Rfam assigns this 101-nucleotide RNA sequence from Saccharopolyspora rectivirgula to the family "Glycine riboswitch aptamer".
The organism belongs to Saccharopolyspora, within Bacteria.

RNA sequence: UGACCCCGUGCGGGAGAGUUCGGUCACGGUGCUGCCGUGGCCGGCGCCGAAGGAGCAACCCUCCCCGACAACCUCUCAGGCCACCGGACCGUACGGGCGAG
Numbered sequence: 001u002g003a004c005c006c007c008g009u010g011c012g013g014g015a016g017a018g019u020u021c022g023g024u025c026a027c028g029g030u031g032c033u034g035c036c037g038u039g040g041c042c043g044g045c046g047c048c049g050a051a052g053g054a055g056c057a058a059c060c061c062u063c064c065c066c067g068a069c070a071a072c073c074u075c076u077c078a079g080g081c082c083a084c085c086g087g088a089c090c091g092u093a094c095g096g097g098c099g100a101g
Stems, first nucleotide, its partner, number of pairs: 006096008020044009046081003049077002053075003060067001
Its family is annotated with glycine biosynthetic process in the Gene Ontology. The match comes from Rfam's covariance-model search (64 bits).